Streptomyces-metK RNA: a 119-nucleotide RNA sequence from Streptomyces caatingaensis. By type it is a small RNA. The base pairs follow the family's consensus structure, which is taken from published work. NCBI's taxonomy places the organism under Bacteria, Bacillati, Actinomycetes, Kitasatosporales, Streptomyces.
RNA sequence: CGGGGACGAGAGGUUCGCCGCGAGCCCGGUGCGGAUAAACUGACACCGGUCCCGCGUCGAGCGCAGCUCUCGGCCGGGCCAUCAAAUGAUCAGCCAGCAGCCGCUGCAACCCCAGGGAG
Numbered sequence: 001c002g003g004g005g006a007c008g009a010g011a012g013g014u015u016c017g018c019c020g021c022g023a024g025c026c027c028g029g030u031g032c033g034g035a036u037a038a039a040c041u042g043a044c045a046c047c048g049g050u051c052c053c054g055c056g057u058c059g060a061g062c063g064c065a066g067c068u069c070u071c072g073g074c075c076g077g078g079c080c081a082u083c084a085a086a087u088g089a090u091c092a093g094c095c096a097g098c099a100g101c102c103g104c105u106g107c108a109a110c111c112c113c114a115g116g117g118a119g
Stems, first nucleotide, its partner, number of pairs: 049080001051078004057073005095106004